[Rfam]
RNA: skipping-rope RNA
RNA sequence: GUUAUUCGAGGUGGAAGAUUUCGUCCCCGUCCACACGCCGAUGGCUUGACAAAGGGAAACCUUGAGAGAUGCAGGAGAAUGGGACGCCUGCCGAAUAAC
Dot-bracket structure: ((((((((..(((((.......[[[[[..))))).((((...)))....................)....(((((.....]]]]].)))))))))))))
Numbered sequence: 001g002u003u004a005u006u007c008g009a010g011g012u013g014g015a016a017g018a019u020u021u022c023g024u025c026c027c028c029g030u031c032c033a034c035a036c037g038c039c040g041a042u043g044g045c046u047u048g049a050c051a052a053a054g055g056g057a058a059a060c061c062u063u064g065a066g067a068g069a070u071g072c073a074g075g076a077g078a079a080u081g082g083g084a085c086g087c088c089u090g091c092c093g094a095a096u097a098a099c
Stems, first nucleotide, its partner, number of pairs: 001099008011034005023085005036066001037045003071091005